Rfam assigns this 173-nucleotide sequence from Bacillaceae bacterium SAS-127 to the family "Group II catalytic intron D1-D4-3". Rfam's curators write: Group II introns are found in rRNA, tRNA and mRNA of organelles in fungi, plants and protists, and also in mRNA in bacteria. The match comes from Rfam's covariance-model search (142 bits). The pairing is the family consensus, mapped onto this sequence.

[Rfam]
RNA sequence: UCCGUGGUGACGCGGAAUCUGAAGGAAGUCGGAGGCAAAUCUCCGCCCCAAGGAACACGAACUACAUAGAAGGCUGGCUGUCAUUGAGUGAGUUUGCUAAACAAAACAAAGCUCUUACUGCCAAAGGUGACAGUGGGUAAAUGUAGUGGGGACAUGGAGAGAAAGAGUACAUC
Numbered sequence: 001u002c003c004g005u006g007g008u009g010a011c012g013c014g015g016a017a018u019c020u021g022a023a024g025g026a027a028g029u030c031g032g033a034g035g036c037a038a039a040u041c042u043c044c045g046c047c048c049c050a051a052g053g054a055a056c057a058c059g060a061a062c063u064a065c066a067u068a069g070a071a072g073g074c075u076g077g078c079u080g081u082c083a084u085u086g087a088g089u090g091a092g093u094u095u096g097c098u099a100a101a102c103a104a105a106a107c108a109a110a111g112c113u114c115u116u117a118c119u120g121c122c123a124a125a126g127g128u129g130a131c132a133g134u135g136g137g138u139a140a141a142u143g144u145a146g147u148g149g150g151g152a153c154a155u156g157g158a159g160a161g162a163a164a165g166a167g168u169a170c171a172u173c
Stems, first nucleotide, its partner, number of pairs: 001016006028173001031170001036165001040160006046151005062146006073138003077134007086114004092107004